[Rfam]
RNA sequence: CUGGGAUAUGGAGAUAUGGUGCCCAAAACAAUUGCAGGGAAAAUUUUUGGCUCCAUCUGUUCCCUGAGUGGCGUCUUGGUCAUUGCCCUGCCGGUCCCUGUGAUUGUUUCCAAC
Numbered sequence: 001c002u003g004g005g006a007u008a009u010g011g012a013g014a015u016a017u018g019g020u021g022c023c024c025a026a027a028a029c030a031a032u033u034g035c036a037g038g039g040a041a042a043a044u045u046u047u048u049g050g051c052u053c054c055a056u057c058u059g060u061u062c063c064c065u066g067a068g069u070g071g072c073g074u075c076u077u078g079g080u081c082a083u084u085g086c087c088c089u090g091c092c093g094g095u096c097c098c099u100g101u102g103a104u105u106g107u108u109u110c111c112a113a114c
Base pairs, nucleotide, nucleotide: 002113004111005110008107009106010105011104014101015100016099018097019096021095022094037077038076039075040074049063050062
RNA: Potassium channel RNA editing signal